[Rfam]
Shown here is a 111-nucleotide sequence from Alkalibaculum sporogenes, a member of the family "c-di-GMP-I riboswitch aptamer". NCBI's taxonomy places the organism under Bacteria, Bacillati, Bacillota, Clostridia, Alkalibaculum.
RNA sequence: UUUUGAUAAAGGCAAACUUACUGAAAGGUAAGGACGCAAAGCUAAGAGUCUAAUGUUUAUAUAACUACUAUUUGCAGUAGAUGUAUUUACUAUGACAGUCAAGCCGCCAGA
Numbered sequence: 001u002u003u004u005g006a007u008a009a010a011g012g013c014a015a016a017c018u019u020a021c022u023g024a025a026a027g028g029u030a031a032g033g034a035c036g037c038a039a040a041g042c043u044a045a046g047a048g049u050c051u052a053a054u055g056u057u058u059a060u061a062u063a064a065c066u067a068c069u070a071u072u073u074g075c076a077g078u079a080g081a082u083g084u085a086u087u088u089a090c091u092a093u094g095a096c097a098g099u100c101a102a103g104c105c106g107c108c109a110g111a
Stems, first nucleotide, its partner, number of pairs: 012037002017032006041104003046100002048096003055090002